[Rfam]
RNA sequence: GGGUCGGCUUUAGCUCAAGCGGUUACUUCGUCAUGGCAGACACUAGUUCCUGCCCUGGGGUUCGAGACCCGCGGGUGCUUUCUGACCCUUUU
Numbered sequence: 001g002g003g004u005c006g007g008c009u010u011u012a013g014c015u016c017a018a019g020c021g022g023u024u025a026c027u028u029c030g031u032c033a034u035g036g037c038a039g040a041c042a043c044u045a046g047u048u049c050c051u052g053c054c055c056u057g058g059g060g061u062u063c064g065a066g067a068c069c070c071g072c073g074g075g076u077g078c079u080u081u082c083u084g085a086c087c088c089u090u091u092u
Stems, first nucleotide, its partner, number of pairs: 002087006013076004019072004027066004
The record is a 92-nucleotide RNA from Phyllostomus discolor, which matches "Vault RNA" in Rfam. Rfam 15.1 lists 2,873 matches to the family in 431 species. The organism belongs to Phyllostomus, within Eukaryota. The base pairs follow the family's consensus structure, which is taken from published work. Rfam describes the family as follows. This family of RNAs are found as part of the enigmatic vault ribonucleoprotein complex. A search with the family's covariance model found it, with a score of 78 bits. It is annotated as a non-coding RNA gene.